[Rfam]
tRNA: a 72-nucleotide RNA from Spirilliplanes yamanashiensis. Its Rfam clan is "tRNA clan". The match comes from Rfam's covariance-model search (57 bits). Lineage of the source: Bacteria > Bacillati > Actinomycetota > Micromonosporales > Spirilliplanes. Transfer RNA (tRNA) molecules are approximately 80 nucleotides in length. Rfam classes the family as a transfer RNA.
Nucleotides: 072
Stems, first nucleotide, its partner, number of pairs: 001071007010024003026042005048064005
Number, partner (000 for none) and nucleotide at each position: 001071g002070c003069c004068c005067g006066a007065a008000u009000g010024c011023c012022c013000g014000a015000g016000u017000g018000g019000u020000g021000a022012g023011g024010g025000g026042c027041g028040c029039g030038u031000c032000u033000g034000c035000a036000a037000c038030a039029c040028g041027c042026g043000u044000g045000u046000a047000c048064g049063c050062c051061g052060g053000u054000u055000c056000g057000a058000a059000u060052c061051c062050g063049g064048c065007u066006u067005c068004g069003g070002g071001u072000u